[Rfam]
RNA sequence: GAGUUUAGCGUGUGCGCGAGUCAUUGGGAGUUGAAAACCCAAGGGCGUAAUGAAAGUGAAGGUCUCCUUGCGGAGCUGAUGUGUGAUCUCGUGCACCCCGGUGUGCGGGCGCAACAUAGUCCCGUCCCGAUCGCAUGCGAUGGGGCGGAGACAGAGCGUACGCGCUGAGACCCGAAAGAUGGUGAACUAUUCCUGAGCAGGAUGAAGCCAGAGGAAACUCUGGUGGAAGUCCGAAGCGAUUCUGACGUGCAAAUCGAUCGUCUGACUUGGGUAUAGGGGCGAAAGACUAAUCGAACCAUCUAGUAGCUGGUU
Numbered sequence: 001g002a003g004u005u006u007a008g009c010g011u012g013u014g015c016g017c018g019a020g021u022c023a024u025u026g027g028g029a030g031u032u033g034a035a036a037a038c039c040c041a042a043g044g045g046c047g048u049a050a051u052g053a054a055a056g057u058g059a060a061g062g063u064c065u066c067c068u069u070g071c072g073g074a075g076c077u078g079a080u081g082u083g084u085g086a087u088c089u090c091g092u093g094c095a096c097c098c099c100g101g102u103g104u105g106c107g108g109g110c111g112c113a114a115c116a117u118a119g120u121c122c123c124g125u126c127c128c129g130a131u132c133g134c135a136u137g138c139g140a141u142g143g144g145g146c147g148g149a150g151a152c153a154g155a156g157c158g159u160a161c162g163c164g165c166u167g168a169g170a171c172c173c174g175a176a177a178g179a180u181g182g183u184g185a186a187c188u189a190u191u192c193c194u195g196a197g198c199a200g201g202a203u204g205a206a207g208c209c210a211g212a213g214g215a216a217a218c219u220c221u222g223g224u225g226g227a228a229g230u231c232c233g234a235a236g237c238g239a240u241u242c243u244g245a246c247g248u249g250c251a252a253a254u255c256g257a258u259c260g261u262c263u264g265a266c267u268u269g270g271g272u273a274u275a276g277g278g279g280c281g282a283a284a285g286a287c288u289a290a291u292c293g294a295a296c297c298a299u300c301u302a303g304u305a306g307c308u309g310g311u312u
Stems, first nucleotide, its partner, number of pairs: 005168013020046003025041004050057002080118005088109007120151002122148003125144003132137001171310002174307001178300006187276004192271006198264001200232004207224007236261004241257002244255002278288002

The family of this 312-nucleotide part of an RNA from Globodera rostochiensis is "Eukaryotic large subunit ribosomal RNA". On this family, see Yusupov et al., Science 2001: "Crystal structure of the ribosome at 5.5 A resolution". Gene Ontology terms of the family: ribosome and structural constituent of ribosome. The match comes from Rfam's covariance-model search (3081 bits).